[Rfam]
RNA: Small nucleolar RNA snR80
Organism: Rasamsonia emersonii
RNA sequence: CGACCUUUGCGACACUCUGGCCGAUACCAUCCAUUCCCGUUCUGGGAUUGGAGCUGUACCCCACGGUAUCGGCUUAUUUUGUGCAAAGAAGAUUGAAACAGACCGCUUACUCACCGCGGUAUCCUUUGAGGUUCGCUUCCCUCGGUGGAUAUGGCGGUCCAUCAUAUUGGUCGACAU
Numbered sequence: 001c002g003a004c005c006u007u008u009g010c011g012a013c014a015c016u017c018u019g020g021c022c023g024a025u026a027c028c029a030u031c032c033a034u035u036c037c038c039g040u041u042c043u044g045g046g047a048u049u050g051g052a053g054c055u056g057u058a059c060c061c062c063a064c065g066g067u068a069u070c071g072g073c074u075u076a077u078u079u080u081g082u083g084c085a086a087a088g089a090a091g092a093u094u095g096a097a098a099c100a101g102a103c104c105g106c107u108u109a110c111u112c113a114c115c116g117c118g119g120u121a122u123c124c125u126u127u128g129a130g131g132u133u134c135g136c137u138u139c140c141c142u143c144g145g146u147g148g149a150u151a152u153g154g155c156g157g158u159c160c161a162u163c164a165u166a167u168u169g170g171u172c173g174a175c176a177u
Base pairs, nucleotide, nucleotide: 007086008085009084019074020073021072022071023070025068026067027066028065030051031050033048034047035046036045101172102171103170104169114157115156116155117154119152120151121150122149123148124147